[Rfam]
RNA sequence: CACACAUUAGUGAAGGCCUCACAGUAAACCACAUUUUGGUAUGUGAGACCUGAUGUCCCUGUGUG
Dot-bracket structure: (((((.........((.((((((.....(((.....)))..)))))).))..........)))))
Numbered sequence: 001c002a003c004a005c006a007u008u009a010g011u012g013a014a015g016g017c018c019u020c021a022c023a024g025u026a027a028a029c030c031a032c033a034u035u036u037u038g039g040u041a042u043g044u045g046a047g048a049c050c051u052g053a054u055g056u057c058c059c060u061g062u063g064u065g
Stems, first nucleotide, its partner, number of pairs: 001065005015050002018047006029039003

A member of the RNA family "Selenocysteine insertion sequence 1" from Coregonus sp. 'balchen', 65 nucleotides long. The base pairs follow the family's consensus structure, which is taken from published work. A search with the family's covariance model found it, with a score of 43 bits. NCBI's taxonomy places the organism under Eukaryota, Chordata, Salmoniformes, Salmonidae, Coregonus. The incorporation of selenocysteine into a protein sequence is directed by an in-frame UGA codon (usually a stop codon) within the coding region of the mRNA. Selenoprotein mRNAs contain a conserved secondary structure in the 3' UTR that is required for the distinction of UGA stop from UGA selenocysteine. The selenocysteine insertion sequence (SECIS) is around 60 nt in length and adopts a hairpin structure which is sufficiently well-defined and conserved to act as a computational screen for selenoprotein genes.